[Rfam]
RNA: L31-Actinobacteria ribosomal protein leader
Organism: Actinomadura meyerae
RNA sequence: GCGGUACCGGUUCACGCCCCUCACAUCUCCCAUGGCGCGGCCAUGUGAGCAUGACGGGCGCCCGGCGACC
Numbered sequence: 001g002c003g004g005u006a007c008c009g010g011u012u013c014a015c016g017c018c019c020c021u022c023a024c025a026u027c028u029c030c031c032a033u034g035g036c037g038c039g040g041c042c043a044u045g046u047g048a049g050c051a052u053g054a055c056g057g058g059c060g061c062c063c064g065g066c067g068a069c070c
Base pairs, nucleotide, nucleotide: 003070004069005068007065008064009063010062015060016059017058018057019056021054022053023052